The record is a 54-nucleotide sequence from Bagarius yarrelli, which matches "UnaL2 LINE 3' element" in Rfam. The match comes from Rfam's covariance-model search (60 bits). By type it is a cis-regulatory element. The base pairs follow the family's consensus structure, which is taken from published work. Rfam describes the family as follows. The eel long interspersed element (LINE) UnaL2 and its partner short interspersed element (SINE) share a conserved 3' tail containing a stem-loop that is critical for their retrotransposition. NCBI's taxonomy places the organism under Eukaryota, Deuterostomia, Actinopterygii, Sisoridae, Bagarius.
RNA sequence: AAAUGAGAUGAAUGUAAGUCGCUCUGGAUAAGAGCAUCUGCUAAAUGUCAAUGU
Numbered sequence: 001a002a003a004u005g006a007g008a009u010g011a012a013u014g015u016a017a018g019u020c021g022c023u024c025u026g027g028a029u030a031a032g033a034g035c036a037u038c039u040g041c042u043a044a045a046u047g048u049c050a051a052u053g054u
Base pairs, nucleotide, nucleotide: 013043014041015040016039021035022034023033024032025031